[Rfam]
RNA sequence: AAUGCCUUCGAAUAACCAGAAGGUCUCUUAACAAGACAAUACCGUCUGGUUCAGACAGAGGCGUACAACAAUCUGGAUCCCUUCUUUUGAGAGGGUACGGAACUUCUGUUUCUGUGUUCCUUUUAUAUUUUGGAUUCGAAUAUUU
Numbered sequence: 001a002a003u004g005c006c007u008u009c010g011a012a013u014a015a016c017c018a019g020a021a022g023g024u025c026u027c028u029u030a031a032c033a034a035g036a037c038a039a040u041a042c043c044g045u046c047u048g049g050u051u052c053a054g055a056c057a058g059a060g061g062c063g064u065a066c067a068a069c070a071a072u073c074u075g076g077a078u079c080c081c082u083u084c085u086u087u088u089g090a091g092a093g094g095g096u097a098c099g100g101a102a103c104u105u106c107u108g109u110u111u112c113u114g115u116g117u118u119c120c121u122u123u124u125a126u127a128u129u130u131u132g133g134a135u136u137c138g139a140a141u142a143u144u145u
Stems, first nucleotide, its partner, number of pairs: 003063006014051007023042002074138006086125001089122003093119001097115006